This 256-nucleotide sequence from Dissophora globulifera belongs to the Rfam family "Group I catalytic intron". Lineage of the source: Eukaryota > Mortierellomycota > Mortierellomycetes > Mortierellales > Dissophora. Group I catalytic introns are large self-splicing ribozymes. Rfam 15.1 lists 5,602 matches to the family in 1,395 species.
[Rfam]
RNA sequence: AACCAUGGGUUAAAUUAAGCCCCUUAGAGUAGUAAUACUUUAACGCAAAUAGGGAGAAUUGCAAGAAUAUCCAUUAUAUAAAUGGACAAUUUGCAGCGGAGCUUACUUCGGUAAAAUUGAGGAGUCAAUUUGAAGUAUGAACGUUCAACGACUAACAAGUGAGUUUUACCAACAAUAAUCUUGACACGAGCACCCUACAACCGGUAAAUAGUUUUAUUGGUUGAAGACAUAGUCUAAGCCCAAUGGUAACAUUGGG
Numbered sequence: 001a002a003c004c005a006u007g008g009g010u011u012a013a014a015u016u017a018a019g020c021c022c023c024u025u026a027g028a029g030u031a032g033u034a035a036u037a038c039u040u041u042a043a044c045g046c047a048a049a050u051a052g053g054g055a056g057a058a059u060u061g062c063a064a065g066a067a068u069a070u071c072c073a074u075u076a077u078a079u080a081a082a083u084g085g086a087c088a089a090u091u092u093g094c095a096g097c098g099g100a101g102c103u104u105a106c107u108u109c110g111g112u113a114a115a116a117u118u119g120a121g122g123a124g125u126c127a128a129u130u131u132g133a134a135g136u137a138u139g140a141a142c143g144u145u146c147a148a149c150g151a152c153u154a155a156c157a158a159g160u161g162a163g164u165u166u167u168a169c170c171a172a173c174a175a176u177a178a179u180c181u182u183g184a185c186a187c188g189a190g191c192a193c194c195c196u197a198c199a200a201c202c203g204g205u206a207a208a209u210a211g212u213u214u215u216a217u218u219g220g221u222u223g224a225a226g227a228c229a230u231a232g233u234c235u236a237a238g239c240c241c242a243a244u245g246g247u248a249a250c251a252u253u254g255g256g
Base pairs, nucleotide, nucleotide: 005024007022008021009020010019011018028039029038030037050197051196052195053194056191060095061094062093063092064091065090070086071085072084073083074082096144097143103137109132110131111130148235150234151233152232153231154230200221201220202219203218204217205216206215207214208213241254242253243252244251245250